RNA sequence: CCUGCAGGCCGCCUUAUCGCCGUUCCGAAAGGAAGGGAGGAAAGUCCGGGCACCAUAGGGCAGCAUAGCGGGUAACGCCCGCCGGCUCCGCAAUCGCGGGGUCAGGACAAGUGCAACAGAAAGUAUGUACAGGUAAUGCUGUAGUGAAACCAGGUAAACUCUAUGCGGUGAAAUAUCAAGUAUAUCAGCAUUUAAGGGCUGCCCGUCCGUUGCUGAAGGGUAGAUAGAUUGAUCCCGUUGGCAACAGCGGGACUAGAUAAAUGAUAAGGAUUCCAUAUCAAAAUUGGGAUACAGAACCCGGCUUACAGGCCUGCUUUUUUU
Numbered sequence: 001c002c003u004g005c006a007g008g009c010c011g012c013c014u015u016a017u018c019g020c021c022g023u024u025c026c027g028a029a030a031g032g033a034a035g036g037g038a039g040g041a042a043a044g045u046c047c048g049g050g051c052a053c054c055a056u057a058g059g060g061c062a063g064c065a066u067a068g069c070g071g072g073u074a075a076c077g078c079c080c081g082c083c084g085g086c087u088c089c090g091c092a093a094u095c096g097c098g099g100g101g102u103c104a105g106g107a108c109a110a111g112u113g114c115a116a117c118a119g120a121a122a123g124u125a126u127g128u129a130c131a132g133g134u135a136a137u138g139c140u141g142u143a144g145u146g147a148a149a150c151c152a153g154g155u156a157a158a159c160u161c162u163a164u165g166c167g168g169u170g171a172a173a174u175a176u177c178a179a180g181u182a183u184a185u186c187a188g189c190a191u192u193u194a195a196g197g198g199c200u201g202c203c204c205g206u207c208c209g210u211u212g213c214u215g216a217a218g219g220g221u222a223g224a225u226a227g228a229u230u231g232a233u234c235c236c237g238u239u240g241g242c243a244a245c246a247g248c249g250g251g252a253c254u255a256g257a258u259a260a261a262u263g264a265u266a267a268g269g270a271u272u273c274c275a276u277a278u279c280a281a282a283a284u285u286g287g288g289a290u291a292c293a294g295a296a297c298c299c300g301g302c303u304u305a306c307a308g309g310c311c312u313g314c315u316u317u318u319u320u321u
Stems, first nucleotide, its partner, number of pairs: 004314007011306001012269007020037002023034004042304003046301005051170004058204004063166005068082005083105001084103008106161002111159002113155002128143005174226004185216005196208004233252008
A member of the RNA family "Bacterial RNase P class A" from Flavobacterium sp., 321 nucleotides long. Lineage of the source: Bacteria > Pseudomonadati > Bacteroidota > Flavobacteriaceae > Flavobacterium. Ribonuclease P (RNase P) is a ubiquitous endoribonuclease, found in archaea, bacteria and eukarya as well as chloroplasts and mitochondria.